The record is a 353-nucleotide part of an RNA from Chitinibacter fontanus, which matches "Bacterial small subunit ribosomal RNA" in Rfam. The match comes from Rfam's covariance-model search (1578 bits). The source organism's lineage runs through Bacteria, Pseudomonadati, Pseudomonadota, Betaproteobacteria and Chitinibacter. The base pairs follow the family's consensus structure, which is taken from published work.
RNA sequence: GGCGUAAAGCGUGCGCAGGUGGUUUGUUAAGCACGAUGUGAAAUCCCCGAGCUCAACUUGGGAAUUGCAUUGUGAACUGGCUAACUAGAGUACGGCAGAGGGGGGUGGAAUUCCACGUGUAGCAGUGAAAUGCGUAGAGAUGUGGAGGAACACCGAUGGCGAAGGCAACCCCCUGGGCUGAUACUGACACUCAUGCACGAAAGCGUGGGGAGCAAACAGGAUUAGAUACCCUGGUAGUCCACGCCCUAAACGAUGUCAACUAGUUGUUGGGCUUUUCGGAGCUUAGUAACGCAGCUAACGCGUGAAGUUGACCGCCUGGGGAGUACGGUCGCAAGACUAAAACUCAAAGGAAU
Numbered sequence: 001g002g003c004g005u006a007a008a009g010c011g012u013g014c015g016c017a018g019g020u021g022g023u024u025u026g027u028u029a030a031g032c033a034c035g036a037u038g039u040g041a042a043a044u045c046c047c048c049g050a051g052c053u054c055a056a057c058u059u060g061g062g063a064a065u066u067g068c069a070u071u072g073u074g075a076a077c078u079g080g081c082u083a084a085c086u087a088g089a090g091u092a093c094g095g096c097a098g099a100g101g102g103g104g105g106u107g108g109a110a111u112u113c114c115a116c117g118u119g120u121a122g123c124a125g126u127g128a129a130a131u132g133c134g135u136a137g138a139g140a141u142g143u144g145g146a147g148g149a150a151c152a153c154c155g156a157u158g159g160c161g162a163a164g165g166c167a168a169c170c171c172c173c174u175g176g177g178c179u180g181a182u183a184c185u186g187a188c189a190c191u192c193a194u195g196c197a198c199g200a201a202a203g204c205g206u207g208g209g210g211a212g213c214a215a216a217c218a219g220g221a222u223u224a225g226a227u228a229c230c231c232u233g234g235u236a237g238u239c240c241a242c243g244c245c246c247u248a249a250a251c252g253a254u255g256u257c258a259a260c261u262a263g264u265u266g267u268u269g270g271g272c273u274u275u276u277c278g279g280a281g282c283u284u285a286g287u288a289a290c291g292c293a294g295c296u297a298a299c300g301c302g303u304g305a306a307g308u309u310g311a312c313c314g315c316c317u318g319g320g321g322a323g324u325a326c327g328g329u330c331g332c333a334a335g336a337c338u339a340a341a342a343c344u345c346a347a348a349g350g351a352a353u
Stems, first nucleotide, its partner, number of pairs: 001316003009313001011198004018191003022085003026081003030078002032074009046062006089185003093180004100174007107151001111147008122133003159166002203244006212238002217233004255312006263290012294301002318345003327338004